RNA: cspA thermoregulator
Organism: Kluyvera cryocrescens
RNA sequence: CACGGUUUGACGUACAGACCACAAAGCAGUGAGUAAAGCAGUUCCCUUCAAGGUUAUCCAUUGGUACCCCUCGUAGCGACAUUUUCUUUACGCUUUUAAAUUCUGUAAAGCAUGCCAUAAUGCCGUAAGGCUCACUAAAUAUUUAAAGGUAAUUUCUAUGUCCGGUAAAAUGACUGGUAUCGUAAAAUGGUUCAACGCUGAUAAAGGUUUCGGCUUCAUCACUCCUGAUGACGGUUCUAAAGAUGUAUUCGUACACUUCUCCGCUAUCAUGAACGAUGGCUACAAAUCUCUGGAUGAAGGUCAGAAAGUUUCCUUCACCAUCGAGAACGGCGCUAAAGGCCCAGCAGCUGGCAACGUAACUUCCCUGUAAGUUAACGCCGCUAAGAAUUCGAAAUCCCUGCCUUACGGCGGGGAUUUUUUU
Numbered sequence: 001c002a003c004g005g006u007u008u009g010a011c012g013u014a015c016a017g018a019c020c021a022c023a024a025a026g027c028a029g030u031g032a033g034u035a036a037a038g039c040a041g042u043u044c045c046c047u048u049c050a051a052g053g054u055u056a057u058c059c060a061u062u063g064g065u066a067c068c069c070c071u072c073g074u075a076g077c078g079a080c081a082u083u084u085u086c087u088u089u090a091c092g093c094u095u096u097u098a099a100a101u102u103c104u105g106u107a108a109a110g111c112a113u114g115c116c117a118u119a120a121u122g123c124c125g126u127a128a129g130g131c132u133c134a135c136u137a138a139a140u141a142u143u144u145a146a147a148g149g150u151a152a153u154u155u156c157u158a159u160g161u162c163c164g165g166u167a168a169a170a171u172g173a174c175u176g177g178u179a180u181c182g183u184a185a186a187a188u189g190g191u192u193c194a195a196c197g198c199u200g201a202u203a204a205a206g207g208u209u210u211c212g213g214c215u216u217c218a219u220c221a222c223u224c225c226u227g228a229u230g231a232c233g234g235u236u237c238u239a240a241a242g243a244u245g246u247a248u249u250c251g252u253a254c255a256c257u258u259c260u261c262c263g264c265u266a267u268c269a270u271g272a273a274c275g276a277u278g279g280c281u282a283c284a285a286a287u288c289u290c291u292g293g294a295u296g297a298a299g300g301u302c303a304g305a306a307a308g309u310u311u312c313c314u315u316c317a318c319c320a321u322c323g324a325g326a327a328c329g330g331c332g333c334u335a336a337a338g339g340c341c342c343a344g345c346a347g348c349u350g351g352c353a354a355c356g357u358a359a360c361u362u363c364c365c366u367g368u369a370a371g372u373u374a375a376c377g378c379c380g381c382u383a384a385g386a387a388u389u390c391g392a393a394a395u396c397c398c399u400g401c402c403u404u405a406c407g408g409c410g411g412g413g414a415u416u417u418u419u420u421u
Stems, first nucleotide, its partner, number of pairs: 004020006025226002028223004038216001041215001043213002045207004053202004059197001061195004066191003072160005085149005090143001092111004122131003162177005229323003233319002242250002253311001255309004260305002263302001264300002267294002271290002275288003329342002332340003344368004350361002372385002375382001376380001391418012